Guanidine-I riboswitch aptamer: a 106-nucleotide RNA from Nitrosospira sp. Nl5. NCBI's taxonomy places the organism under Bacteria, Pseudomonadati, Pseudomonadota, Nitrosomonadales, Nitrosospira. On this family, see Battaglia et al., RNA 2017: "Structural basis for guanidine sensing by the ykkC family of riboswitches". The match comes from Rfam's covariance-model search (92 bits). The base pairs follow the family's consensus structure.
RNA sequence: GUAAGGAGAAACUAGGGUUCCGGUUUCCUUGAUAGGAAAUGUCUGGUCCGAGAGUUUCCGGCUUCGUCAUGACGGAGCUCCACGGAGGGAUAAAAGCCCGGGAGAA
Numbered sequence: 001g002u003a004a005g006g007a008g009a010a011a012c013u014a015g016g017g018u019u020c021c022g023g024u025u026u027c028c029u030u031g032a033u034a035g036g037a038a039a040u041g042u043c044u045g046g047u048c049c050g051a052g053a054g055u056u057u058c059c060g061g062c063u064u065c066g067u068c069a070u071g072a073c074g075g076a077g078c079u080c081c082a083c084g085g086a087g088g089g090a091u092a093a094a095a096g097c098c099c100g101g102g103a104g105a106a
Stems, first nucleotide, its partner, number of pairs: 008058005015049002020046002022043001023040006060079008081101001083104001087099003